[Rfam]
RNA sequence: AAAGCCCAGUCUCAAAACAGAGACGGACGGGCUGCUUGCAGCCCAGGACGGCUGUGUUUUCGAGACGCUAAUCCAUAUGAGCAAGAAGGCUGGUAGGCCGGAUUGCGAAUAUGGAUAGGAUUGCGGGAGCGCAGAGCGCGGAGCAAUCCGUGGGCUUU
Numbered sequence: 001a002a003a004g005c006c007c008a009g010u011c012u013c014a015a016a017a018c019a020g021a022g023a024c025g026g027a028c029g030g031g032c033u034g035c036u037u038g039c040a041g042c043c044c045a046g047g048a049c050g051g052c053u054g055u056g057u058u059u060u061c062g063a064g065a066c067g068c069u070a071a072u073c074c075a076u077a078u079g080a081g082c083a084a085g086a087a088g089g090c091u092g093g094u095a096g097g098c099c100g101g102a103u104u105g106c107g108a109a110u111a112u113g114g115a116u117a118g119g120a121u122u123g124c125g126g127g128a129g130c131g132c133a134g135a136g137c138g139c140g141g142a143g144c145a146a147u148c149c150g151u152g153g154g155c156u157u158u
Stems, first nucleotide, its partner, number of pairs: 001158007010065004014060006021053002024050002028046001030043005071116008081106004088099004118149007129139004